[Rfam]
RNA sequence: ACACUUUUUUAAAAGCAGUCCUGUGAGGCUGACAAAGAGUGAUUAAUUUCUAUAGGGGAUUAUUCUAUACUCUUUGUCGACACAGACAAGGGGUAUUUUUUAU
Numbered sequence: 001a002c003a004c005u006u007u008u009u010u011a012a013a014a015g016c017a018g019u020c021c022u023g024u025g026a027g028g029c030u031g032a033c034a035a036a037g038a039g040u041g042a043u044u045a046a047u048u049u050c051u052a053u054a055g056g057g058g059a060u061u062a063u064u065c066u067a068u069a070c071u072c073u074u075u076g077u078c079g080a081c082a083c084a085g086a087c088a089a090g091g092g093g094u095a096u097u098u099u100u101u102a103u
Stems, first nucleotide, its partner, number of pairs: 003040007016031005044062007067096012
This 103-nucleotide RNA from Listeria monocytogenes belongs to the Rfam family "PyrR binding site". Gene Ontology terms of the family: pyrimidine nucleobase biosynthetic process and pyrimidine nucleobase transport. The family's RNA type in Rfam is cis-regulatory element. NCBI's taxonomy places the organism under Bacteria, Bacillati, Caryophanales, Listeria, Listeria monocytogenes. From the family's description: This family represents the PyrR binding site and terminator structure.